The record is a 328-nucleotide sequence from Cavia porcellus, which matches "Small Cajal body-specific RNA 7" in Rfam.
RNA sequence: UGGAAAUGAUGAAAUAGAGAUAGUUGGGUGUUGAAUGUUGUAUGACUGGAAAUUUUAGUAAUCUGUAAGUAAUUCUUUCAGUUGAGUAUUUUGUAGUUAGUUAAUAGAGUGUGUGCGCGUGUGUGUGUGUAUGCGCUUGUGGCUAUGGAAAGGGGGCACUGAAUGGUGAUGCUGAUAUUGGAGUGCAUCUGAGGCUGUUGUAGAAAAUAACAUGGGUUCUUGAUUACAACAUUGCCAAUGAUUAUUACCCAAGAACAGCUCACCUAAGUAGCCUAGCACCCUAAAAUCUCUAACAGGUUCAUUGAUGUGGUCCUGUGAUCUGAUCCAA
Numbered sequence: 001u002g003g004a005a006a007u008g009a010u011g012a013a014a015u016a017g018a019g020a021u022a023g024u025u026g027g028g029u030g031u032u033g034a035a036u037g038u039u040g041u042a043u044g045a046c047u048g049g050a051a052a053u054u055u056u057a058g059u060a061a062u063c064u065g066u067a068a069g070u071a072a073u074u075c076u077u078u079c080a081g082u083u084g085a086g087u088a089u090u091u092u093g094u095a096g097u098u099a100g101u102u103a104a105u106a107g108a109g110u111g112u113g114u115g116c117g118c119g120u121g122u123g124u125g126u127g128u129g130u131a132u133g134c135g136c137u138u139g140u141g142g143c144u145a146u147g148g149a150a151a152g153g154g155g156g157c158a159c160u161g162a163a164u165g166g167u168g169a170u171g172c173u174g175a176u177a178u179u180g181g182a183g184u185g186c187a188u189c190u191g192a193g194g195c196u197g198u199u200g201u202a203g204a205a206a207a208u209a210a211c212a213u214g215g216g217u218u219c220u221u222g223a224u225u226a227c228a229a230c231a232u233u234g235c236c237a238a239u240g241a242u243u244a245u246u247a248c249c250c251a252a253g254a255a256c257a258g259c260u261c262a263c264c265u266a267a268g269u270a271g272c273c274u275a276g277c278a279c280c281c282u283a284a285a286a287u288c289u290c291u292a293a294c295a296g297g298u299u300c301a302u303u304g305a306u307g308u309g310g311u312c313c314u315g316u317g318a319u320c321u322g323a324u325c326c327a328a
Base pairs, nucleotide, nucleotide: 001327002326003325004324196231197230198229199228200227201226202225203224206221207220209218210217211216
Gene Ontology terms of the family: nucleolus and RNA processing.
The source organism's lineage runs through Eukaryota, Opisthokonta, Chordata, Boreoeutheria and Cavia.
It is one of the family's seed sequences.
By type it is a small Cajal body RNA.
On this family, see Darzacq et al., EMBO J 2002: "Cajal body-specific small nuclear RNAs: a novel class of 2'-O-methylation and pseudouridylation guide RNAs".